[Rfam]
RNA sequence: AGAAAGGACUUCUGUCAUGACUGGCACACAUAGGGCAACUUGAUUGCUCUAUGUGCAGAAUCAACAUCAAAGAGAUUUCAGAAGUGUGAUUUUUUGGUACCCAGACAGCUAGUGAUCAUUGGCCCUGGCACAUGA
Numbered sequence: 001a002g003a004a005a006g007g008a009c010u011u012c013u014g015u016c017a018u019g020a021c022u023g024g025c026a027c028a029c030a031u032a033g034g035g036c037a038a039c040u041u042g043a044u045u046g047c048u049c050u051a052u053g054u055g056c057a058g059a060a061u062c063a064a065c066a067u068c069a070a071a072g073a074g075a076u077u078u079c080a081g082a083a084g085u086g087u088g089a090u091u092u093u094u095u096g097g098u099a100c101c102c103a104g105a106c107a108g109c110u111a112g113u114g115a116u117c118a119u120u121g122g123c124c125c126u127g128g129c130a131c132a133u134g135a
Stems, first nucleotide, its partner, number of pairs: 008085005013026005027055012058078005103133001108129005114124001116122002
About this RNA
Shown here is a 135-nucleotide RNA sequence from Phyllostomus discolor, a member of the family "U11 spliceosomal RNA". A search with the family's covariance model found it, with a score of 83 bits.